[Rfam]
RNA sequence: AUAUAAUGGAAAGCGCCUGGGCCAAAAAUUUUUGGUUGACGAGGAAGAAGUCUAUCGAAUAUCGGCGGGUGGCUUCAGGGUCUGCACUCUACAGAUUGAUCGUUAAAAACAAGUGUAAGCUUGCAAUAAAGCGGCAAUCACGCAGUUGG
Numbered sequence: 001a002u003a004u005a006a007u008g009g010a011a012a013g014c015g016c017c018u019g020g021g022c023c024a025a026a027a028a029u030u031u032u033u034g035g036u037u038g039a040c041g042a043g044g045a046a047g048a049a050g051u052c053u054a055u056c057g058a059a060u061a062u063c064g065g066c067g068g069g070u071g072g073c074u075u076c077a078g079g080g081u082c083u084g085c086a087c088u089c090u091a092c093a094g095a096u097u098g099a100u101c102g103u104u105a106a107a108a109a110c111a112a113g114u115g116u117a118a119g120c121u122u123g124c125a126a127u128a129a130a131g132c133g134g135c136a137a138u139c140a141c142g143c144a145g146u147u148g149g
Base pairs, nucleotide, nucleotide: 020037021036022035023034024033025032026031047076048075049074050073051072055065056064057063058062077090078089079088080087081086094139095138096137097136098135100133110123111122112121113120114119
RNA: glmS glucosamine-6-phosphate activated ribozyme aptamer